[Rfam]
RNA: FMN riboswitch aptamer (RFN element)
Organism: Nocardioides anomalus
RNA sequence: UCGCGUGCACUGGGGGCGGUGGAAUUCCGCACCGGCGGUAACAGUCCGCGACCCGGCCACAGCCAGUAGCCGGUUGACCAGGUGGAACUCCUGGACCGACGGUCAGAGUCCGGAUGGGAAGCGCACGCAG
Numbered sequence: 001u002c003g004c005g006u007g008c009a010c011u012g013g014g015g016g017c018g019g020u021g022g023a024a025u026u027c028c029g030c031a032c033c034g035g036c037g038g039u040a041a042c043a044g045u046c047c048g049c050g051a052c053c054c055g056g057c058c059a060c061a062g063c064c065a066g067u068a069g070c071c072g073g074u075u076g077a078c079c080a081g082g083u084g085g086a087a088c089u090c091c092u093g094g095a096c097c098g099a100c101g102g103u104c105a106g107a108g109u110c111c112g113g114a115u116g117g118g119a120a121g122c123g124c125a126c127g128c129a130g
Stems, first nucleotide, its partner, number of pairs: 003128006010121001017029003031109002033098002035049004044096002053073002078094005100112003